[Rfam]
RNA: Small nucleolar RNA SNORD16
RNA sequence: UGCCAUGAUGUCGUAAUUUGCGUCCUACGCUGCGCUCGGUGACAGUUGCCUGCUGUCGGUGUGCUGGUGCAGACGGGUGACGAACCCUUCACGCUGAGCA
Number, nucleotide and partner (000 for none) at each position: 001u100002g099003c098004c000005a000006u000007g000008a000009u000010g000011u000012c000013g000014u000015a000016a000017u000018u000019u000020g000021c082022g081023u080024c079025c000026u000027a000028c000029g000030c072031u071032g070033c069034g068035c000036u000037c000038g000039g064040u063041g057042a056043c055044a054045g053046u000047u000048g000049c000050c000051u000052g000053c045054u044055g043056u042057c041058g000059g000060u000061g000062u000063g040064c039065u000066g000067g000068u034069g033070c032071a031072g030073a000074c000075g000076g000077g000078u000079g024080a023081c022082g021083a000084a000085c000086c000087c000088u000089u000090c000091a000092c000093g000094c000095u000096g000097a000098g003099c002100a001